[Rfam]
RNA sequence: AUGGAUCUGAUGAAGGGCACAAAGUAGUCAGGAUGUACUGCCGUACAGAGAGGAAUGCCGCUGGCUGGAAGCAUUCCCGACAGCGCUUGAUGAAAGACAACCCGGAAGACCGGUGGAAACACACGGCGUACUCCCGCGUUAUGGGGUAAUGGAGUGGGAUAUCAUUAUAUCCAAGUAGGGUGGUACCACGGGAAUUGUGAACCAAUCUCUCGUCCCUGAC
Numbered sequence: 001a002u003g004g005a006u007c008u009g010a011u012g013a014a015g016g017g018c019a020c021a022a023a024g025u026a027g028u029c030a031g032g033a034u035g036u037a038c039u040g041c042c043g044u045a046c047a048g049a050g051a052g053g054a055a056u057g058c059c060g061c062u063g064g065c066u067g068g069a070a071g072c073a074u075u076c077c078c079g080a081c082a083g084c085g086c087u088u089g090a091u092g093a094a095a096g097a098c099a100a101c102c103c104g105g106a107a108g109a110c111c112g113g114u115g116g117a118a119a120c121a122c123a124c125g126g127c128g129u130a131c132u133c134c135c136g137c138g139u140u141a142u143g144g145g146g147u148a149a150u151g152g153a154g155u156g157g158g159a160u161a162u163c164a165u166u167a168u169a170u171c172c173a174a175g176u177a178g179g180g181u182g183g184u185a186c187c188a189c190g191g192g193a194a195u196u197g198u199g200a201a202c203c204a205a206u207c208u209c210u211c212g213u214c215c216c217u218g219a220c
Stems, first nucleotide, its partner, number of pairs: 007108002015103003027091006042079002053076006111125002113122003127138003157172006177217004188213005

T-box leader: a 220-nucleotide RNA from Aneurinibacillus danicus. The literature on the family includes a 1994 paper in J Bacteriol by Grundy et al., "Interaction between the acceptor end of tRNA and the T box stimulates antitermination in the Bacillus subtilis tyrS gene: a new role for the discriminator base". The match comes from Rfam's covariance-model search (98 bits). Taxonomically the source falls in Aneurinibacillus (Bacteria, Bacillota, Bacilli, Paenibacillaceae). Uncharged tRNA acts as the effector for transcription antitermination of genes in the T-box leader family.